[Rfam]
RNA sequence: UCCACACCUAUAUGUAUAGGACUUCAAAAGAUUACCAUUAAAUUUGACAUAGAUCUCUAGAAAAAUUAUCACAUGGAUAUGAGACUUGACUUUUCUAGAGAUUUGUGUCAAAUUUAAUGGUGAUCCUUUGGGGUCCUAUACACAUGAGUGUGGG
Numbered sequence: 001u002c003c004a005c006a007c008c009u010a011u012a013u014g015u016a017u018a019g020g021a022c023u024u025c026a027a028a029a030g031a032u033u034a035c036c037a038u039u040a041a042a043u044u045u046g047a048c049a050u051a052g053a054u055c056u057c058u059a060g061a062a063a064a065a066u067u068a069u070c071a072c073a074u075g076g077a078u079a080u081g082a083g084a085c086u087u088g089a090c091u092u093u094u095c096u097a098g099a100g101a102u103u104u105g106u107g108u109c110a111a112a113u114u115u116a117a118u119g120g121u122g123a124u125c126c127u128u129u130g131g132g133g134u135c136c137u138a139u140a141c142a143c144a145u146g147a148g149u150g151u152g153g154g
Stems, first nucleotide, its partner, number of pairs: 002153006009146003013142001015140014030125003034121031066089003069082003073078001
The family of this 154-nucleotide RNA sequence from Amborella trichopoda is "MIR8565 microRNA precursor family". The organism belongs to Amborella, within Eukaryota. Gene Ontology terms of the family: miRNA-mediated post-transcriptional gene silencing and RISC complex.